Nucleotides: 125
Stems, first nucleotide, its partner, number of pairs: 004122007016028003030105002032095002034048004043093002051071002075091005097108003
Number, partner (000 for none) and nucleotide at each position: 001000c002000a003000a004122u005121c006120u007119c008118u009117u010116u011000g012000g013000g014000g015000c016028a017027g018026g019000u020000g021000a022000a023000a024000u025000u026018c027017c028016u029000g030105a031104c032095c033094g034048g035047u036046g037045g038000u039000g040000a041000c042000a043093g044092u045037c046036c047035a048034c049000g050000a051071g052070c053000g054000g055000c056000g057000g058000c059000c060000a061000a062000u063000g064000g065000c066000u067000g068000c069000g070052g071051u072000u073000g074000a075091u076090c077089c078088g079087g080000u081000g082000a083000g084000a085000u086000u087079c088078c089077g090076g091075a092044a093043c094033c095032g096000a097108c098107g099106g100000c101000a102000u103000a104031g105030u106099c107098c108097g109000g110000a111000u112000g113000g114000g115000a116010a117009a118008a119007g120006a121005g122004g123000a124000a125000a

Shown here is a 125-nucleotide RNA sequence from Enterocloster lavalensis, a member of the family "FMN riboswitch aptamer (RFN element)". The family's consensus secondary structure is taken from published work. The source organism's lineage runs through Bacteria, Bacillati, Bacillota, Clostridia and Enterocloster. About the family: The RFN element is a highly conserved domain that is found frequently in the 5'-untranslated regions of prokaryotic mRNAs that encode for flavin mononucleotide (FMN) biosynthesis and transport proteins.